[Rfam]
RNA sequence: AACCGACAUCAAGGACUCGUUCUGCGAACCCUGGCCGACGGCAAGAUAAGAGUGCAUACCCAGCUCUUUCAUCUGCUGCUCGCCAAUGACGCGCGUGACGACAUUUUUGCUGUAGCUGUCGGCCAGUUGACGCGCCUGAGAAGCCAGGUACGCUGCGUUACAGAUGUUCGGCGGCAUAUUGCCGAGAUCUUUCGC
Numbered sequence: 001a002a003c004c005g006a007c008a009u010c011a012a013g014g015a016c017u018c019g020u021u022c023u024g025c026g027a028a029c030c031c032u033g034g035c036c037g038a039c040g041g042c043a044a045g046a047u048a049a050g051a052g053u054g055c056a057u058a059c060c061c062a063g064c065u066c067u068u069u070c071a072u073c074u075g076c077u078g079c080u081c082g083c084c085a086a087u088g089a090c091g092c093g094c095g096u097g098a099c100g101a102c103a104u105u106u107u108u109g110c111u112g113u114a115g116c117u118g119u120c121g122g123c124c125a126g127u128u129g130a131c132g133c134g135c136c137u138g139a140g141a142a143g144c145c146a147g148g149u150a151c152g153c154u155g156c157g158u159u160a161c162a163g164a165u166g167u168u169c170g171g172c173g174g175c176a177u178a179u180u181g182c183c184g185a186g187a188u189c190u191u192u193c194g195c
Base pairs, nucleotide, nucleotide: 005189006188012032013031014030017027018026019025020024034042035041050059062077063076064075078135079134081132082131084129085128086127087126091123092122095119096118097117099112100111102109103108136163137162138161140159141158143156144155167186168185169184170183171182172181